[Rfam]
RNA sequence: CCUCCUUUUCUUGGCGGGGGCCGGGUGUACGGUCCCGGCCCCCGUAAUGUACGGAGGCAGAGGGAAAGGGCUCUGGCCCCUCGGCGUCAUGUCUUCGGUGCCCGCGGCUUCCGGUCCGCGGGUUCUAUCCUCAACCGCCGGGACACCG
Number, nucleotide and partner (000 for none) at each position: 001c057002c056003u055004c054005c053006u000007u000008u000009u000010c000011u000012u000013g000014g000015c044016g043017g042018g041019g040020g039021c000022c037023g036024g035025g034026u000027g000028u000029a000030c000031g000032g000033u000034c025035c024036c023037g022038g000039c020040c019041c018042c017043c016044g015045u000046a000047a000048u000049g000050u000051a000052c000053g005054g004055a003056g002057g001058c000059a000060g000061a000062g000063g000064g000065a000066a000067a000068g000069g000070g000071c000072u000073c000074u000075g000076g000077c000078c000079c000080c000081u000082c140083g139084g138085c137086g136087u000088c000089a000090u000091g000092u000093c000094u000095u000096c000097g000098g000099u000100g000101c122102c121103c120104g119105c118106g117107g116108c000109u000110u000111c000112c000113g000114g000115u000116c107117c106118g105119c104120g103121g102122g101123u000124u000125c000126u000127a000128u000129c000130c000131u000132c000133a000134a000135c000136c086137g085138c084139c083140g082141g000142g000143a000144c000145a000146c000147c000148g000

This 148-nucleotide sequence from Felis catus belongs to the Rfam family "Small nucleolar RNA SNORA57". Rfam's curators write: U99 belongs to the H/ACA class of snoRNAs which are thought to guide the sites of modification of uridines to pseudouridines, the target for this family is unknown. Rfam classes the family as an H/ACA-box small nucleolar RNA. Pairs were carried over by alignment from the consensus structure, which was predicted with PFOLD. Taxonomically the source falls in Felis (Eukaryota, Eumetazoa, Euteleostomi, Feliformia).